RNA sequence: CUUGAUCGACCCGAGCAGCAACGGCGUCUCGCGGUCCUGCCCGUAGGCGGACAGCAGCGCCUGCGCCUC
Numbered sequence: 001c002u003u004g005a006u007c008g009a010c011c012c013g014a015g016c017a018g019c020a021a022c023g024g025c026g027u028c029u030c031g032c033g034g035u036c037c038u039g040c041c042c043g044u045a046g047g048c049g050g051a052c053a054g055c056a057g058c059g060c061c062u063g064c065g066c067c068u069c
Stems, first nucleotide, its partner, number of pairs: 015025002028065001030063001032059002037054003041050003

ASpks TB sRNA: a 69-nucleotide RNA sequence from Amycolatopsis sp. M39.
A search with the family's covariance model found it, with a score of 61 bits.
The base pairs follow the family's consensus structure, which is taken from published work.
Lineage of the source: Bacteria > Bacillati > Actinomycetota > Pseudonocardiaceae > Amycolatopsis.
By type it is an antisense RNA.